About this RNA:
Rfam assigns this 136-nucleotide RNA from Virgibacillus salarius to the family "PyrR binding site". Pairs were carried over by alignment from the consensus structure, which is taken from published work. The organism belongs to Virgibacillus, within Bacteria. A search with the family's covariance model found it, with a score of 60 bits. Rfam classes the family as a cis-regulatory element. Rfam describes the family as follows. This family represents the PyrR binding site and terminator structure. This RNA structure is found upstream of a variety of genes involved in pyrimidine biosynthesis and transport. The alignment also includes a portion of the antiterminator structure. The literature on the family includes a 2001 paper in Nucleic Acids Res by Bonner et al., "Molecular recognition of pyr mRNA by the Bacillus subtilis attenuation regulatory protein PyrR".

RNA sequence: GUUACCUUUAAUUCAGUCCCGUGAGGCUGCCAAGGUGUAACAGAUGGAAUUCUGUUCAAUAAAAUCAGGAGGAACUUCGUGUUCUACCUCAUUUUAUAGAAGCACCCUGCCACACACGGCUCGGUGCUUUUUUCUU
Number, nucleotide and partner (000 for none) at each position: 001g000002u000003u037004a036005c035006c034007u033008u032009u000010a000011a000012u000013u000014c029015a028016g027017u026018c025019c000020c000021g000022u000023g000024a000025g018026g017027c016028u015029g014030c000031c000032a008033a007034g006035g005036u004037g003038u000039a000040a000041c000042a000043g000044a000045u000046g000047g000048a000049a000050u000051u000052c000053u000054g000055u000056u000057c000058a000059a000060u000061a000062a094063a093064a092065u091066c000067a089068g088069g087070a000071g085072g084073a083074a082075c081076u000077u000078c000079g000080u000081g075082u074083u073084c072085u071086a000087c069088c068089u067090c000091a065092u064093u063094u062095u000096a000097u000098a131099g130100a129101a128102g127103c126104a125105c124106c123107c000108u000109g120110c119111c118112a000113c000114a000115c000116a000117c000118g111119g110120c109121u000122c000123g106124g105125u104126g103127c102128u101129u100130u099131u098132u000133u000134c000135u000136u000